[Rfam]
Background:
Shown here is a 72-nucleotide RNA sequence from Rousettus aegyptiacus, a member of the family "Small nucleolar RNA SNORD113/SNORD114 family". Rfam's curators write: The imprinted human domain at 14q32 contains two clusters of tandemly repeated small nucleolar RNAs named 14q(I) and 14q(II) snoRNAs. These two clusters are named SNORD113 and SNORD114 respectively in the HGNC approved gene symbol nomenclature. Rfam links the family to the GO terms nucleolus and RNA processing.
RNA sequence: UGGACCAAUGGUGAAGACUGGUGGCAUGUGAGUCAUGGAUAACGAAAACACAUGUCUGACACUGAGGUCUGA
Numbered sequence: 001u002g003g004a005c006c007a008a009u010g011g012u013g014a015a016g017a018c019u020g021g022u023g024g025c026a027u028g029u030g031a032g033u034c035a036u037g038g039a040u041a042a043c044g045a046a047a048a049c050a051c052a053u054g055u056c057u058g059a060c061a062c063u064g065a066g067g068u069c070u071g072a
Stems, first nucleotide, its partner, number of pairs: 002070005
By type it is a C/D-box small nucleolar RNA. Pairs were carried over by alignment from the consensus structure, which is taken from published work. Lineage of the source: Eukaryota > Metazoa > Vertebrata > Yinpterochiroptera > Rousettus. The match comes from Rfam's covariance-model search (57 bits).